[Rfam]
RNA: Bacterial RNase P class A
RNA sequence: CCAGACGGCUGGACGGUCGCUGUGACUGGGAUGAGGAUCCCCGUCAUGGAGGAAAGUCCGGGCUCCAUGGGACAACGGUACCGGCUAACAGCCGGCGGGGGCGACCCUAGGGACAGUGCCACAGAAAACAGACCGCCCGCCGGACUGUUCCUUCUUGGAAUACGUCGCGGGUAAGGGCGAAACGGUGUGGUAAAAGCACACCGCGAUGCCGGCAACGGCGUCGGUCACGGUAAACCCUACCGGGAGCAAAACCGAAUAGGAACGGCAGGCUGUCGCAAGGCAGCCGGGAGCGUCUCACUCCGUCGUUCGGGUUGGUUGCGCGAGGCAUGCAGCGAUGCAUGUCCCAGAGGAAUGAUCGUCCCGCCUUUGGCGGACAGAACCCGGCUUACAGGCCGUCUGGCACC
Numbered sequence: 001c002c003a004g005a006c007g008g009c010u011g012g013a014c015g016g017u018c019g020c021u022g023u024g025a026c027u028g029g030g031a032u033g034a035g036g037a038u039c040c041c042c043g044u045c046a047u048g049g050a051g052g053a054a055a056g057u058c059c060g061g062g063c064u065c066c067a068u069g070g071g072a073c074a075a076c077g078g079u080a081c082c083g084g085c086u087a088a089c090a091g092c093c094g095g096c097g098g099g100g101g102c103g104a105c106c107c108u109a110g111g112g113a114c115a116g117u118g119c120c121a122c123a124g125a126a127a128a129c130a131g132a133c134c135g136c137c138c139g140c141c142g143g144a145c146u147g148u149u150c151c152u153u154c155u156u157g158g159a160a161u162a163c164g165u166c167g168c169g170g171g172u173a174a175g176g177g178c179g180a181a182a183c184g185g186u187g188u189g190g191u192a193a194a195a196g197c198a199c200a201c202c203g204c205g206a207u208g209c210c211g212g213c214a215a216c217g218g219c220g221u222c223g224g225u226c227a228c229g230g231u232a233a234a235c236c237c238u239a240c241c242g243g244g245a246g247c248a249a250a251a252c253c254g255a256a257u258a259g260g261a262a263c264g265g266c267a268g269g270c271u272g273u274c275g276c277a278a279g280g281c282a283g284c285c286g287g288g289a290g291c292g293u294c295u296c297a298c299u300c301c302g303u304c305g306u307u308c309g310g311g312u313u314g315g316u317u318g319c320g321c322g323a324g325g326c327a328u329g330c331a332g333c334g335a336u337g338c339a340u341g342u343c344c345c346a347g348a349g350g351a352a353u354g355a356u357c358g359u360c361c362c363g364c365c366u367u368u369g370g371c372g373g374a375c376a377g378a379a380c381c382c383g384g385c386u387u388a389c390a391g392g393c394c395g396u397c398u399g400g401c402a403c404c
Stems, first nucleotide, its partner, number of pairs: 001400010011389001012360007020049007028041004054387003058384005063246004071296002074293001076242005081095005096110001097108004111237002116235002118231003133176002135172006142165001184202006203226001204223008250317004260308006287301004324343008
Dot-bracket structure: ((((((((((((((((((.(((((((.((((......)))).)))))))....[[[.[[[[[((((....[[.[.((((((((((.....)))))(((((....)))).)((...(((((............((((((((.(......................).))))))..)).......((((((.......))))))(((((((((....))))))))..)..)))..)))))))))))))...((((......((((((.....................((((..].]].)))).)))))).....))))......((((((((....))))))))..........)))))))...................]]]]]]]].).))))))))))....